[Rfam]
RNA sequence: GGCGAACCACCGCCCAAUCGCGACACGCGAACCGGGGACCCAGGUCAGUGGGGUGAAGCCGUGGCACCACGCGCGGCCGGGCAUGCUUCCCGCCCGAACCCGUCAGCUAACCCGGUCGGCGGCUGAGUGGGAAGAA
Numbered sequence: 001g002g003c004g005a006a007c008c009a010c011c012g013c014c015c016a017a018u019c020g021c022g023a024c025a026c027g028c029g030a031a032c033c034g035g036g037g038a039c040c041c042a043g044g045u046c047a048g049u050g051g052g053g054u055g056a057a058g059c060c061g062u063g064g065c066a067c068c069a070c071g072c073g074c075g076g077c078c079g080g081g082c083a084u085g086c087u088u089c090c091c092g093c094c095c096g097a098a099c100c101c102g103u104c105a106g107c108u109a110a111c112c113c114g115g116u117c118g119g120c121g122g123c124u125g126a127g128u129g130g131g132a133a134g135a136a
Stems, first nucleotide, its partner, number of pairs: 011121004018030003031116006041050002051101003059076004079095004